[Rfam]
RNA sequence: GCGUGGGUCGGCCCACCGUGCGCUGGCAACCGGUGGGCUGGGGGACGCCGCCGCCUACAUCCCCGCGGGCGGCGGACCGGUCCGGGAGGCCAUGCGCGCCUCCCGGAUCGCG
Numbered sequence: 001g002c003g004u005g006g007g008u009c010g011g012c013c014c015a016c017c018g019u020g021c022g023c024u025g026g027c028a029a030c031c032g033g034u035g036g037g038c039u040g041g042g043g044g045a046c047g048c049c050g051c052c053g054c055c056u057a058c059a060u061c062c063c064c065g066c067g068g069g070c071g072g073c074g075g076a077c078c079g080g081u082c083c084g085g086g087a088g089g090c091c092a093u094g095c096g097c098g099c100c101u102c103c104c105g106g107a108u109c110g111c112g
Base pairs, nucleotide, nucleotide: 001111002110006078007077008076009040010039011038012037013036014035015034016033017032018031041046048075049074050073051072052071053070054069055068056067058065079109080108081107082106083105084104085103086102087101088100089099090098
The record is a 112-nucleotide sequence from Streptomyces indicus, which matches "Streptomyces RNA 4115" in Rfam. Pairs were carried over by alignment from the consensus structure. The family's RNA type in Rfam is small RNA. Identified by deep sequencing of transcriptome at the end of exponential growth phase. Sequencing size consistent with notrthern blot size. Streptomyces specific.